The record is a 121-nucleotide RNA sequence from Maritimibacter sp. 55A14, which matches "TPP riboswitch aptamer (THI element)" in Rfam. From the family's description: Vitamin B(1) in its active form thiamin pyrophosphate (TPP) is an essential coenzyme that is synthesised by coupling of pyrimidine and thiazole moieties in bacteria.
RNA sequence: AACCUAUCGCAGGGGAGCCCCGCUGAGGGGGCUGAGAGGCUGACGGCGCAUUUGCGCAGUGACGCGACCCUUUGAACCUGACCCAGGUGAUGCUGGCGUAGGGAGCACGGGCCAUUUUCCG
Numbered sequence: 001a002a003c004c005u006a007u008c009g010c011a012g013g014g015g016a017g018c019c020c021c022g023c024u025g026a027g028g029g030g031g032c033u034g035a036g037a038g039g040c041u042g043a044c045g046g047c048g049c050a051u052u053u054g055c056g057c058a059g060u061g062a063c064g065c066g067a068c069c070c071u072u073u074g075a076a077c078c079u080g081a082c083c084c085a086g087g088u089g090a091u092g093c094u095g096g097c098g099u100a101g102g103g104a105g106c107a108c109g110g111g112c113c114a115u116u117u118u119c120c121g
Stems, first nucleotide, its partner, number of pairs: 009106002011071004017032005040064001077102004083096004

Overview
NCBI's taxonomy places the organism under Bacteria, Pseudomonadati, Alphaproteobacteria, Rhodobacterales, Maritimibacter. Rfam links the family to the GO term thiamine pyrophosphate binding. It scores 58 bits against the family's covariance model.